[Rfam]
RNA sequence: UUUAUCCUUCGGGGCAGGGUGUAAUUCCCUACCGGCGGUAAUGGGACAAUGUCUCUAGCCCGUGACCCGGCUCUACUUAUGUAGGGACGGUGGAUUUGGUGAAAUUCCAAAGCCGACAGUGAAAGUCUGGAUGGGAGAAGGAAAUA
Numbered sequence: 001u002u003u004a005u006c007c008u009u010c011g012g013g014g015c016a017g018g019g020u021g022u023a024a025u026u027c028c029c030u031a032c033c034g035g036c037g038g039u040a041a042u043g044g045g046a047c048a049a050u051g052u053c054u055c056u057a058g059c060c061c062g063u064g065a066c067c068c069g070g071c072u073c074u075a076c077u078u079a080u081g082u083a084g085g086g087a088c089g090g091u092g093g094a095u096u097u098g099g100u101g102a103a104a105u106u107c108c109a110a111a112g113c114c115g116a117c118a119g120u121g122a123a124a125g126u127c128u129g130g131a132u133g134g135g136a137g138a139a140g141g142a143a144a145u146a
Base pairs, nucleotide, nucleotide: 003144005142006141007140008139009138010137017029018028019027031126032125033115034114035063036062037061038060058113059112067090068089095111096110097109098108099107117129118128119127